[Rfam]
RNA sequence: CUAUAAACGGGAUUUUAACGUAAAUCCUUUUUGUGUCAUGCUGAGCUUAGUCGAAGCACACAAAAAGAUUGUAGUGAAAGCCCGACUAAUU
Number, nucleotide and partner (000 for none) at each position: 001c000002u000003a000004u000005a000006a000007a000008c000009g083010g082011g081012a000013u079014u078015u000016u000017a000018a075019c074020g000021u000022a000023a070024a069025u068026c067027c000028u000029u065030u064031u063032u062033g061034u060035g059036u058037c000038a000039u000040g000041c000042u000043g000044a000045g000046c000047u000048u000049a000050g000051u000052c000053g000054a000055a000056g000057c000058a036059c035060a034061c033062a032063a031064a030065a029066a000067g026068a025069u024070u023071g000072u000073a000074g019075u018076g000077a000078a014079a013080g000081c011082c010083c009084g000085a000086c000087u000088a000089a000090u000091u000
RNA: Flavo-1 RNA
Organism: Pedobacter cryotolerans